[Rfam]
RNA sequence: GCGAAACAGAGAGGCGCAACACUCAGGCAGAUUAAUUCUAGGCAACUAGGGCCGUUUGACGAUUAAUUGAUGGGAGUGCUUGCCGAGGUGUGAAUUCACUAGACUGGAAUGAACAUCGGCUAGGUCAGGUUGAAUCCUACUAGCUGUCAUUUAAAUCUCGUUUAAAGCGAUUUUAAAUGGAGUGCUCUGAUGGAA
Number, nucleotide and partner (000 for none) at each position: 001g000002c000003g000004a000005a000006a000007c189008a188009g187010a186011g185012a000013g000014g000015c000016g083017c082018a081019a080020c078021a077022c076023u075024c074025a000026g000027g000028c000029a000030g000031a067032u066033u065034a064035a063036u062037u061038c000039u000040a000041g000042g000043c000044a000045a000046c000047u000048a000049g000050g000051g000052c000053c000054g000055u000056u000057u000058g000059a000060c000061g037062a036063u035064u034065a033066a032067u031068u000069g000070a000071u000072g000073g000074g024075a023076g022077u021078g020079c000080u019081u018082g017083c016084c000085g000086a000087g117088g116089u115090g114091u113092g000093a000094a110095u109096u108097c107098a000099c000100u000101a000102g000103a000104c000105u000106g000107g097108a096109a095110u094111g000112a000113a091114c090115a089116u088117c087118g145119g144120c143121u142122a000123g141124g140125u000126c000127a138128g137129g136130u000131u000132g000133a000134a000135u000136c129137c128138u127139a000140c124141u123142a121143g120144c119145u118146g000147u180148c179149a178150u177151u176152u175153a174154a173155a172156u000157c000158u000159c000160g000161u000162u000163u000164a000165a000166a000167g000168c000169g000170a000171u000172u155173u154174u153175a152176a151177a150178u149179g148180g147181a000182g000183u000184g000185c011186u010187c009188u008189g007190a000191u000192g000193g000194a000195a000
Lysine riboswitch aptamer: a 195-nucleotide RNA sequence from Pseudohaemophilus paraphrohaemolyticus. Gene Ontology term of the family: lysine biosynthetic process. A search with the family's covariance model found it, with a score of 64 bits.